[Rfam]
RNA sequence: UUCCGUUUCAUCUUCAAGCGAAUAUUGGAAUAAAAAAAUAAGUUAUUCCAAUAUUUGCUUUGAAGAUGAAAACGGAA
Numbered sequence: 001u002u003c004c005g006u007u008u009c010a011u012c013u014u015c016a017a018g019c020g021a022a023u024a025u026u027g028g029a030a031u032a033a034a035a036a037a038a039u040a041a042g043u044u045a046u047u048c049c050a051a052u053a054u055u056u057g058c059u060u061u062g063a064a065g066a067u068g069a070a071a072a073c074g075g076a077a
Stems, first nucleotide, its partner, number of pairs: 001077003005073003010067008019057001021055008
RNA: mir-16 microRNA precursor family